[Rfam]
This 307-nucleotide RNA sequence from Rattus norvegicus belongs to the Rfam family "Metazoan signal recognition particle RNA".
The signal recognition particle (SRP) is a universally conserved ribonucleoprotein. It is involved in the co-translational targeting of proteins to membranes. The eukaryotic SRP consists of a 300-nucleotide 7S RNA and six proteins: SRPs 72, 68, 54, 19, 14, and 9.
A search with the family's covariance model found it, with a score of 182 bits.
The family's RNA type in Rfam is non-coding RNA gene.

RNA sequence: ACCUGGCGGAGUGGCGCAUGCCUAUAGUCUCAGCUACUGGAGAGGCUGAGACAGGAGGAUCGCUUGAGUCCAGGAGUUCUAGACUGUAGUGCGCUAUGCCGAUCGGGUGACUGCACUAAGUUCGGUAUCAAUAUGGUGACCUUCUGGGAGCGGGAAACCACCAGGUUGCCUAAGGAGGGGUGAGCCAGCCCAGGUCGGUGGAAAUGGAGCAGGUCAAAACUUCUUUGCUGAUCAGUAGUGGAAUCGCUCCUGUGAAUAGCCACUGCACUCCAGUCAGCUUGGGCAAUAUAGGGAGACCCUGGGGUUU
Numbered sequence: 001a002c003c004u005g006g007c008g009g010a011g012u013g014g015c016g017c018a019u020g021c022c023u024a025u026a027g028u029c030u031c032a033g034c035u036a037c038u039g040g041a042g043a044g045g046c047u048g049a050g051a052c053a054g055g056a057g058g059a060u061c062g063c064u065u066g067a068g069u070c071c072a073g074g075a076g077u078u079c080u081a082g083a084c085u086g087u088a089g090u091g092c093g094c095u096a097u098g099c100c101g102a103u104c105g106g107g108u109g110a111c112u113g114c115a116c117u118a119a120g121u122u123c124g125g126u127a128u129c130a131a132u133a134u135g136g137u138g139a140c141c142u143u144c145u146g147g148g149a150g151c152g153g154g155a156a157a158c159c160a161c162c163a164g165g166u167u168g169c170c171u172a173a174g175g176a177g178g179g180g181u182g183a184g185c186c187a188g189c190c191c192a193g194g195u196c197g198g199u200g201g202a203a204a205u206g207g208a209g210c211a212g213g214u215c216a217a218a219a220c221u222u223c224u225u226u227g228c229u230g231a232u233c234a235g236u237a238g239u240g241g242a243a244u245c246g247c248u249c250c251u252g253u254g255a256a257u258a259g260c261c262a263c264u265g266c267a268c269u270c271c272a273g274u275c276a277g278c279u280u281g282g283g284c285a286a287u288a289u290a291g292g293g294a295g296a297c298c299c300u301g302g303g304g305u306u307u
Base pairs, nucleotide, nucleotide: 002045003044005022006021007020008019028043029042030041048305052301053300054299055298060294061293063291064290068284069283070282071281072280073279074278079273080272082270083269085267086266087265088264089263090262091261093260094259095258096257097256099254104252105251106250107249109247112241114240115239116238117237118236120233122231123230124229125228126227127226129168130167131166132165134163135162136161137160138159142155143154144153145152146151169175170174176224177223178222179221180220181219188214189213190212195207196206197205
Dot-bracket structure: .((.((((..........)))).....(((..........)))))..(...((((....((.((...(((((((....((.((.(((((((.(((((.(....((((.(..(.(((((.(.((((((.((((.(((((...(((((....)))))...))))).))))((...))((((((......(((....(((.......)))....)))....)))))).)))))).)..)))))).....).)))).).)))))))))))).)).))....))))))).....)).))...))))...)..